[Rfam]
RNA sequence: GGUAUUCCCACCAAGGAUGAUGUCAUCCCAGUGCCCAGACACUGGGAUCCAGAAAACUUAAUUACAAAUGGGCACAUCAGGCAACUGUGUAAUAAGAACUGGAUUCCAGUGUCACGCACUGGAAUGACACCACAUACCACCUGCAAAUU
Numbered sequence: 001g002g003u004a005u006u007c008c009c010a011c012c013a014a015g016g017a018u019g020a021u022g023u024c025a026u027c028c029c030a031g032u033g034c035c036c037a038g039a040c041a042c043u044g045g046g047a048u049c050c051a052g053a054a055a056a057c058u059u060a061a062u063u064a065c066a067a068a069u070g071g072g073c074a075c076a077u078c079a080g081g082c083a084a085c086u087g088u089g090u091a092a093u094a095a096g097a098a099c100u101g102g103a104u105u106c107c108a109g110u111g112u113c114a115c116g117c118a119c120u121g122g123a124a125u126g127a128c129a130c131c132a133c134a135u136a137c138c139a140c141c142u143g144c145a146a147a148u149u
Stems, first nucleotide, its partner, number of pairs: 012143002015140001021129006028122007038113015
RNA: Wolbachia sRNA 46